[Rfam]
RNA sequence: UAAAAAGUAACACUCCGAGUCCAUUGACCUAAAGCAAAAGGCCAUGGUCUUUGGACCGAUAGGGUGUAUUGGGAAACCGGUACGCCUCCCGGUAUGGAAAGGAGGGCUUGAACUGUUUAU
Numbered sequence: 001u002a003a004a005a006a007g008u009a010a011c012a013c014u015c016c017g018a019g020u021c022c023a024u025u026g027a028c029c030u031a032a033a034g035c036a037a038a039a040g041g042c043c044a045u046g047g048u049c050u051u052u053g054g055a056c057c058g059a060u061a062g063g064g065u066g067u068a069u070u071g072g073g074a075a076a077c078c079g080g081u082a083c084g085c086c087u088c089c090c091g092g093u094a095u096g097g098a099a100a101g102g103a104g105g106g107c108u109u110g111a112a113c114u115g116u117u118u119a120u
Base pairs, nucleotide, nucleotide: 003114011106013104014103015102016101019056020055021054022053023052026049027048028047029046034042035041062087063086064085065084066083067082068081069080070079071078072077088097089096